[Rfam]
RNA sequence: AUGCAGGUACUGUUACAAUGUAACUGAAGUGUUUUAUUGUCACUCCCCCUGCUUAAAGUAUUUUAUAUAUAACUAUUUCUAACUCCAUUCCAUAGUAAGACAGAGAUGCUUGGUAUCAAACAU
Numbered sequence: 001a002u003g004c005a006g007g008u009a010c011u012g013u014u015a016c017a018a019u020g021u022a023a024c025u026g027a028a029g030u031g032u033u034u035u036a037u038u039g040u041c042a043c044u045c046c047c048c049c050u051g052c053u054u055a056a057a058g059u060a061u062u063u064u065a066u067a068u069a070u071a072a073c074u075a076u077u078u079c080u081a082a083c084u085c086c087a088u089u090c091c092a093u094a095g096u097a098a099g100a101c102a103g104a105g106a107u108g109c110u111u112g113g114u115a116u117c118a119a120a121c122a123u
Stems, first nucleotide, its partner, number of pairs: 003052005015040006022033003078104003083099002086095001
RNA: Small nucleolar RNA SNORA63